[Rfam]
RNA: Archaeal large subunit ribosomal RNA, nucleotides 2590 to 3189
Organism: Candidatus Calditenuaceae archaeon HR02
RNA sequence: UGGCCAGCACCGGUACCUGAACCCCGGGUCCAACCGGGAUAAGGGCCGGUUAGCGCCGGGGGUAACUCUGACCCUCAAGUUCAAGGGGGUCGUUAAACGCGGCUGUAUGCGGGGAAGGAGGAGGCUAUGGGUACCCCGCGCGGGUAACAAUCCCGUAGCACCGUGAAUCCGACCCGCAGGAAACCGCCCUGUGAAACAGCUAUAAAGGCUGAAGGUCAGCGGACAGCAGAUGAGUCUAGCCUACCUCAUUGGAGUGAUGCUGGGAGACGGAGGCGUCUACGGCAACUAUUACACGGUCUUCUGCCGAGACCCUAACUUCGAGUUCGCCAACUUUAUCGCCGCCACGGUUGAAGAGCUUUUCGGAGUCAAGCCAAACAUACGGCGCGCAAGUAAAAGCCUCUACAUAGUCUCCACGAAUGUUAGGAAGGUACAUGACUUCUUGUUGAGGAUCGGGUUCCCGAAGGGGCGGAAGCUCGUCAGCGCGCAGAUACCGGAAUUGUUUAAACACGAUAUCGACGUCGUGAAGGGGCUGUUCGACAGUGAAGGAUACUGCGGGAUAGAUGUUCAGACUCAGGGCAUGAAGAAGUUUCGCUAUCCCUA
Numbered sequence: 001u002g003g004c005c006a007g008c009a010c011c012g013g014u015a016c017c018u019g020a021a022c023c024c025c026g027g028g029u030c031c032a033a034c035c036g037g038g039a040u041a042a043g044g045g046c047c048g049g050u051u052a053g054c055g056c057c058g059g060g061g062g063u064a065a066c067u068c069u070g071a072c073c074c075u076c077a078a079g080u081u082c083a084a085g086g087g088g089g090u091c092g093u094u095a096a097a098c099g100c101g102g103c104u105g106u107a108u109g110c111g112g113g114g115a116a117g118g119a120g121g122a123g124g125c126u127a128u129g130g131g132u133a134c135c136c137c138g139c140g141c142g143g144g145u146a147a148c149a150a151u152c153c154c155g156u157a158g159c160a161c162c163g164u165g166a167a168u169c170c171g172a173c174c175c176g177c178a179g180g181a182a183a184c185c186g187c188c189c190u191g192u193g194a195a196a197c198a199g200c201u202a203u204a205a206a207g208g209c210u211g212a213a214g215g216u217c218a219g220c221g222g223a224c225a226g227c228a229g230a231u232g233a234g235u236c237u238a239g240c241c242u243a244c245c246u247c248a249u250u251g252g253a254g255u256g257a258u259g260c261u262g263g264g265a266g267a268c269g270g271a272g273g274c275g276u277c278u279a280c281g282g283c284a285a286c287u288a289u290u291a292c293a294c295g296g297u298c299u300u301c302u303g304c305c306g307a308g309a310c311c312c313u314a315a316c317u318u319c320g321a322g323u324u325c326g327c328c329a330a331c332u333u334u335a336u337c338g339c340c341g342c343c344a345c346g347g348u349u350g351a352a353g354a355g356c357u358u359u360u361c362g363g364a365g366u367c368a369a370g371c372c373a374a375a376c377a378u379a380c381g382g383c384g385c386g387c388a389a390g391u392a393a394a395a396g397c398c399u400c401u402a403c404a405u406a407g408u409c410u411c412c413a414c415g416a417a418u419g420u421u422a423g424g425a426a427g428g429u430a431c432a433u434g435a436c437u438u439c440u441u442g443u444u445g446a447g448g449a450u451c452g453g454g455u456u457c458c459c460g461a462a463g464g465g466g467c468g469g470a471a472g473c474u475c476g477u478c479a480g481c482g483c484g485c486a487g488a489u490a491c492c493g494g495a496a497u498u499g500u501u502u503a504a505a506c507a508c509g510a511u512a513u514c515g516a517c518g519u520c521g522u523g524a525a526g527g528g529g530c531u532g533u534u535c536g537a538c539a540g541u542g543a544a545g546g547a548u549a550c551u552g553c554g555g556g557a558u559a560g561a562u563g564u565u566c567a568g569a570c571u572c573a574g575g576g577c578a579u580g581a582a583g584a585a586g587u588u589u590c591g592c593u594a595u596c597c598c599u600a
Stems, first nucleotide, its partner, number of pairs: 002057003007054002009050005016045003023038005058076006